[Rfam]
The record is a 91-nucleotide RNA sequence from Lawsonibacter faecis, which matches "Selenocysteine transfer RNA" in Rfam. The family has 109 seed sequences and 4,211 matches in Rfam 15.1.
Nucleotides: 091
Base pairs, nucleotide, nucleotide: 001091002090003089004088005087006086007085008084011026012025013024014023015022016021029043030042031041032040047065048064049063050062051061068082069081070080071079
Number, partner (000 for none) and nucleotide at each position: 001091g002090g003089g004088a005087g006086c007085a008084g009000c010000u011026g012025g013024g014023g015022u016021c017000c018000g019000g020000u021016g022015g023014c024013c025012c026011c027000c028000a029043c030042g031041g032040u033000c034000u035000u036000c037000a038000a039000a040032a041031c042030c043029g044000c045000u046000g047065c048064g049063g050062g051061c052000g053000c054000u055000u056000c057000u058000g059000u060000c061051g062050c063049c064048c065047g066000g067000g068082u069081g070080a071079g072000u073000u074000c075000g076000a077000u078000u079071c080070u081069c082068a083000c084008c085007u086006g087005c088004u089003u090002c091001c